[Rfam]
This 85-nucleotide RNA sequence from Microcebus murinus belongs to the Rfam family "mir-544 microRNA precursor family".
The family has 16 seed sequences and 10,750 matches in Rfam 15.1.
Rfam links the family to the GO terms miRNA-mediated post-transcriptional gene silencing and RISC complex.
The source organism's lineage runs through Eukaryota, Metazoa, Mammalia, Eutheria and Microcebus.
On this family, see Chiang et al., Genes Dev 2010: "Mammalian microRNAs: experimental evaluation of novel and previously annotated genes".
A search with the family's covariance model found it, with a score of 70 bits.
RNA sequence: AAUUCCCUGGGAUCUUGUUAAAAUGCAGGUUUCUGGGAUGGGGCCCAAAAUUCUGCAUUUCUAACAAGUUCCCAGGUGAUGCUCA
Numbered sequence: 001a002a003u004u005c006c007c008u009g010g011g012a013u014c015u016u017g018u019u020a021a022a023a024u025g026c027a028g029g030u031u032u033c034u035g036g037g038a039u040g041g042g043g044c045c046c047a048a049a050a051u052u053c054u055g056c057a058u059u060u061c062u063a064a065c066a067a068g069u070u071c072c073c074a075g076g077u078g079a080u081g082c083u084c085a
Stems, first nucleotide, its partner, number of pairs: 003078001005076001009072003014068007021060003025056005031050002034048001